[Rfam]
About this RNA: TPP riboswitch aptamer (THI element): a 102-nucleotide sequence from Marinobacter sp. R17. Rfam 15.1 lists 16,130 matches to the family in 8,693 species. About the family: Vitamin B(1) in its active form thiamin pyrophosphate (TPP) is an essential coenzyme that is synthesised by coupling of pyrimidine and thiazole moieties in bacteria. A search with the family's covariance model found it, with a score of 73 bits.
RNA sequence: GUUUUCUCAACGGGGUGCCUGCGACCGUAUCGACAGGCUGAGAUCAGACCCGCGGAACCUGCUCCGGAUCAUGCCGGCGAAGGGAUUGAGUGAAGACUCUGC
Numbered sequence: 001g002u003u004u005u006c007u008c009a010a011c012g013g014g015g016u017g018c019c020u021g022c023g024a025c026c027g028u029a030u031c032g033a034c035a036g037g038c039u040g041a042g043a044u045c046a047g048a049c050c051c052g053c054g055g056a057a058c059c060u061g062c063u064c065c066g067g068a069u070c071a072u073g074c075c076g077g078c079g080a081a082g083g084g085a086u087u088g089a090g091u092g093a094a095g096a097c098u099c100u101g102c
Base pairs, nucleotide, nucleotide: 006090007089008088009087010086011052012051013050014049016046017038018037019036020035021034058083059082060081064077065076066075067074